A member of the RNA family "TPP riboswitch aptamer (THI element)" from Luteibacter anthropi, 96 nucleotides long. Taxonomically the source falls in Luteibacter (Bacteria, Pseudomonadota, Lysobacterales, Rhodanobacteraceae). Vitamin B(1) in its active form thiamin pyrophosphate (TPP) is an essential coenzyme that is synthesised by coupling of pyrimidine and thiazole moieties in bacteria. The previously detected thiamin-regulatory element, thi box was extended, resulting in a new, highly conserved RNA secondary structure, the THI element, which is widely distributed in eubacteria and also occurs in some archaea. Analysis of operon structures identified a large number of new candidate thiamin-regulated genes, mostly transporters, in various prokaryotic organisms. The THI element is a riboswitch that directly binds to TPP to regulate gene expression through a variety of mechanisms in archaea, bacteria and eukaryotes. through a variety of mechanisms in archaea, bacteria and eukaryotes. Pairs were carried over by alignment from the consensus structure, which is taken from published work.
[Rfam]
RNA sequence: CGCCUGAAGCGGGGGUGCCGGGCGAAUGCCGGCUGAGAGAGUCCCUUGGAACCUGAUCCGGUUAACACCGGCGUAGGGAGCUUGCAGGACCACGGC
Numbered sequence: 001c002g003c004c005u006g007a008a009g010c011g012g013g014g015g016u017g018c019c020g021g022g023c024g025a026a027u028g029c030c031g032g033c034u035g036a037g038a039g040a041g042u043c044c045c046u047u048g049g050a051a052c053c054u055g056a057u058c059c060g061g062u063u064a065a066c067a068c069c070g071g072c073g074u075a076g077g078g079a080g081c082u083u084g085c086a087g088g089a090c091c092a093c094g095g096c
Stems, first nucleotide, its partner, number of pairs: 007083004011046004016040001017033005052077004058071004